[Rfam]
RNA sequence: UGUGUAGAGGCGUGAAAGGUGCUGUGUUCUCUCUCAGCAAAUUUCUUGCCUUUUGCAGC
Numbered sequence: 001u002g003u004g005u006a007g008a009g010g011c012g013u014g015a016a017a018g019g020u021g022c023u024g025u026g027u028u029c030u031c032u033c034u035c036a037g038c039a040a041a042u043u044u045c046u047u048g049c050c051u052u053u054u055g056c057a058g059c
Base pairs, nucleotide, nucleotide: 002056003055004054006053007052008051009050010049011048012047014045015044016043017042021038022037023036

The record is a 59-nucleotide sequence from Monodelphis domestica, which matches "mir-7398 microRNA precursor family" in Rfam.
NCBI's taxonomy places the organism under Eukaryota, Craniata, Vertebrata, Amniota, Monodelphis.
Gene Ontology terms of the family: RISC complex and miRNA-mediated post-transcriptional gene silencing.